[Rfam]
RNA sequence: AUCAAUCUUCGGGGCAGGGCGAAAUUCCCGACCGGCGGUGAUGAAAUUUUUUUUCUAAGUCCGCGAGCCUAUUGUUUUGGGCAGGAUCUGGUGGAAUUCCAGAACCGACAGUAUAGUCUGGAUGAGAGAAGAUGGAG
Numbered sequence: 001a002u003c004a005a006u007c008u009u010c011g012g013g014g015c016a017g018g019g020c021g022a023a024a025u026u027c028c029c030g031a032c033c034g035g036c037g038g039u040g041a042u043g044a045a046a047u048u049u050u051u052u053u054u055c056u057a058a059g060u061c062c063g064c065g066a067g068c069c070u071a072u073u074g075u076u077u078u079g080g081g082c083a084g085g086a087u088c089u090g091g092u093g094g095a096a097u098u099c100c101a102g103a104a105c106c107g108a109c110a111g112u113a114u115a116g117u118c119u120g121g122a123u124g125a126g127a128g129a130a131g132a133u134g135g136a137g
Base pairs, nucleotide, nucleotide: 003135005133006132007131008130009129010128017029018028019027031117032116033107034106035064036063037062038061059105060104067082068081069080087103088102089101090100091099109120110119111118
RNA: FMN riboswitch aptamer (RFN element)